[Rfam]
RNA sequence: CCAUCAGUGAUGACACCCCAAAAAUCAUUCCUUGGAAAAGCUAAACAAAAUGAAUGAAAACACUAAACAGUCAUUCUCAUUGUGACGCAGGUCC
Numbered sequence: 001c002c003a004u005c006a007g008u009g010a011u012g013a014c015a016c017c018c019c020a021a022a023a024a025u026c027a028u029u030c031c032u033u034g035g036a037a038a039a040g041c042u043a044a045a046c047a048a049a050a051u052g053a054a055u056g057a058a059a060a061c062a063c064u065a066a067a068c069a070g071u072c073a074u075u076c077u078c079a080u081u082g083u084g085a086c087g088c089a090g091g092u093c094c
Stems, first nucleotide, its partner, number of pairs: 003092003026056005032048003
Small nucleolar RNA SNORD116: a 94-nucleotide RNA from Chinchilla lanigera.
The match comes from Rfam's covariance-model search (68 bits).
The base pairs follow the family's consensus structure, which was predicted with PFOLD.
It is annotated as a C/D-box small nucleolar RNA.
Gene Ontology terms of the family: nucleolus and RNA processing.